[Rfam]
RNA sequence: CUGACUGGUUGCCCGGCUAGACCUUUCACGUCCUGUGAAAAACGCCCAGUACCUUCCUCCUGAAGG
Numbered sequence: 001c002u003g004a005c006u007g008g009u010u011g012c013c014c015g016g017c018u019a020g021a022c023c024u025u026u027c028a029c030g031u032c033c034u035g036u037g038a039a040a041a042a043c044g045c046c047c048a049g050u051a052c053c054u055u056c057c058u059c060c061u062g063a064a065g066g
Stems, first nucleotide, its partner, number of pairs: 011050002015046003025039005052066005

Bacillaceae-1 RNA: a 66-nucleotide RNA from Bacillus licheniformis. The sequence is in the family's curated seed alignment.